The record is a 54-nucleotide RNA from Acidovorax sp. KKS102, which matches "nhaA-I RNA" in Rfam. From the family's description: Acidobacteria, Alphaproteobacteria, Betaproteobacteria and Gammaproteobacteria, Verrucomicrobia, cand. division NC10. The family's RNA type in Rfam is riboswitch.

RNA sequence: GGGUGUCGGCGCCAUGGUGGCCCGGCAGGUUCAUGCGCUGGUCGGGCCGCCGCG
Number, nucleotide and partner (000 for none) at each position: 001g000002g000003g000004u000005g026006u025007c024008g023009g022010c000011g021012c020013c000014a000015u000016g000017g000018u000019g000020g012021c011022c009023c008024g007025g006026c005027a000028g000029g000030u000031u000032c000033a000034u000035g000036c054037g053038c052039u000040g051041g050042u049043c000044g000045g000046g000047c000048c000049g042050c041051c040052g038053c037054g036
It is one of the family's seed sequences.